[Rfam]
RNA sequence: CUCUUAUCGAGAGUGGUGGAGGGACUGGCCCGAUGAAACCCAGCAACCAGCGUAAGCAUGGUGCUAAAUCCUGUAGGAGUAUUCCUAACAGAUGAGAG
Dot-bracket structure: ((((((((....(.(((...(((.[.[[)))......))))((((.((.((....))..))))))...(]].](((((....)))))..)))))))))

A member of the RNA family "SAM riboswitch aptamer (S box leader)" from Desulfosporosinus acididurans, 98 nucleotides long. It scores 87 bits against the family's covariance model. Rfam's curators write: The SAM riboswitch is found upstream of a number of genes which code for proteins involved in methionine or cysteine biosynthesis in Gram-positive bacteria.